[Rfam]
RNA sequence: GUGCCCCUGUGUGAUAUGGCUUUUUAUUCCUAUGUGACAAUAAAAAUGUUCACACAGGAGUAGAAGCCACUUCACACGUGGCAG
Dot-bracket structure: .((((.(.((((((..(((((((..((((((.(((((............))))).)))))).)))))))..))))))).)))).
RNA: mir-135 microRNA precursor family
Organism: Cynoglossus semilaevis